[Rfam]
RNA sequence: UUGCUCUUGCUUCAACAGUGCUUGAACGGAGCAG
Numbered sequence: 001u002u003g004c005u006c007u008u009g010c011u012u013c014a015a016c017a018g019u020g021c022u023u024g025a026a027c028g029g030a031g032c033a034g
Base pairs, nucleotide, nucleotide: 001034002033003032004031005030006029007028009027011026012025013024014023015022016020
RNA: Iron response element I
Organism: Anolis carolinensis